[Rfam]
RNA: MIR1120/MIR1122 microRNA precursor family
RNA sequence: CUACUCCCUCCGUCCCAUAAUAUAAGAGCAUUUUUGACACUUGUGAGGUGUCAAAAAUGCUCUUAUAUUAUGGGACGGAGGAAGUAU
Numbered sequence: 001c002u003a004c005u006c007c008c009u010c011c012g013u014c015c016c017a018u019a020a021u022a023u024a025a026g027a028g029c030a031u032u033u034u035u036g037a038c039a040c041u042u043g044u045g046a047g048g049u050g051u052c053a054a055a056a057a058u059g060c061u062c063u064u065a066u067a068u069u070a071u072g073g074g075a076c077g078g079a080g081g082a083a084g085u086a087u
Base pairs, nucleotide, nucleotide: 003085004084005083007081008080009079010078011077013075014074015073016072017071019069020068021067022066023065024064025063026062027061028060029059030058031057032056033055034054035053036052037051038050039049040048041047